[Rfam]
RNA: mir-322 microRNA precursor family
RNA sequence: CAAGGGGGUAUAGCAGCACUUCACGUUUUGAACCAUUUAGAGCACUUCAAAACAUGAAUUGCUGCUGUAUCCCCUUGGAGUCAA
Numbered sequence: 001c002a003a004g005g006g007g008g009u010a011u012a013g014c015a016g017c018a019c020u021u022c023a024c025g026u027u028u029u030g031a032a033c034c035a036u037u038u039a040g041a042g043c044a045c046u047u048c049a050a051a052a053c054a055u056g057a058a059u060u061g062c063u064g065c066u067g068u069a070u071c072c073c074c075u076u077g078g079a080g081u082c083a084a
Base pairs, nucleotide, nucleotide: 001077002076003075004074005073006072007071009069010068013065014064015063016062017061020058021057022056023055025053026052027051028050029049030048031047032046